[Rfam]
RNA sequence: AUCCAUGUUUCUUUCUCUCCUCCUCCCUCCCUCCUUUCUACCCUCUAAAAAAAGAGUUCACACCUGCAUGCUAGAGCAACCUGGAGAGACUUUGACAGCUCAGGUCAGCAUAAUACCUGCAGCUGCCACUCGCCUUUCCUAUAUCU
Numbered sequence: 001a002u003c004c005a006u007g008u009u010u011c012u013u014u015c016u017c018u019c020c021u022c023c024u025c026c027c028u029c030c031c032u033c034c035u036u037u038c039u040a041c042c043c044u045c046u047a048a049a050a051a052a053a054g055a056g057u058u059c060a061c062a063c064c065u066g067c068a069u070g071c072u073a074g075a076g077c078a079a080c081c082u083g084g085a086g087a088g089a090c091u092u093u094g095a096c097a098g099c100u101c102a103g104g105u106c107a108g109c110a111u112a113a114u115a116c117c118u119g120c121a122g123c124u125g126c127c128a129c130u131c132g133c134c135u136u137u138c139c140u141a142u143a144u145c146u
Stems, first nucleotide, its partner, number of pairs: 004054001008051003083139006098126002101119004
The family of this 146-nucleotide RNA sequence from Myotis brandtii is "Small nucleolar RNA SNORA44".
Clan: SNORA44 clan.
Gene Ontology terms of the family: nucleolus and RNA processing.
A reference for the family is Huttenhofer et al. (2001), "RNomics: an experimental approach that identifies 201 candidates for novel, small, non-messenger RNAs in mouse", EMBO J.
The organism belongs to Myotis, within Eukaryota.
From the family's description: ACA44 is a member of the H/ACA class of snoRNA that guide the sites of modification of uridines to pseudouridines.